[Rfam]
SAM riboswitch aptamer (S box leader): a 100-nucleotide RNA sequence from Mongoliitalea lutea.
Pairs were carried over by alignment from the consensus structure, which is taken from published work.
RNA sequence: UGCUUAUCGAGAAAGACCGAGGGGUGGGCCCUACGACGUCUUAGCAACCUGAAUACAAGGUGCUAAUUCCCCUUCCGGAAAUGCCGGAAAAAGAUGAGCG
Number, nucleotide and partner (000 for none) at each position: 001u100002g099003c098004u097005u096006a095007u094008c093009g000010a000011g000012a000013a042014a041015g040016a039017c038018c000019g000020a000021g031022g030023g029024g000025u000026g071027g070028g069029c023030c022031c021032u000033a000034c000035g000036a000037c000038g017039u016040c015041u014042u013043a064044g063045c062046a061047a000048c060049c059050u000051g056052a000053a000054u000055a000056c051057a000058a000059g049060g048061u046062g045063c044064u043065a000066a000067u000068u092069c028070c027071c026072c000073u089074u088075c087076c086077g085078g084079a000080a000081a000082u000083g000084c078085c077086g076087g075088a074089a073090a000091a000092a068093g008094a007095u006096g005097a004098g003099c002100g001